[Rfam]
RNA sequence: ACACACACUGAGUGGCCAGAUUAUUAUGCGUUCAGAGAUCAUAAUAAUCUGGUCACUCAGUGUGUUA
Numbered sequence: 001a002c003a004c005a006c007a008c009u010g011a012g013u014g015g016c017c018a019g020a021u022u023a024u025u026a027u028g029c030g031u032u033c034a035g036a037g038a039u040c041a042u043a044a045u046a047a048u049c050u051g052g053u054c055a056c057u058c059a060g061u062g063u064g065u066u067a
Base pairs, nucleotide, nucleotide: 004064005063006062007061008060009059010058011057012056013055014054015053016052017051019049020048021047022046023045024044025043026042027041028040
Record summary
The family of this 67-nucleotide RNA from Cnephaeus nilssonii is "mir-9256 microRNA precursor family". Taxonomically the source falls in Cnephaeus (Eukaryota, Opisthokonta, Craniata, Boreoeutheria). The family has 8 seed sequences and 31,772 matches in Rfam 15.1. Rfam links the family to the GO terms miRNA-mediated post-transcriptional gene silencing and RISC complex.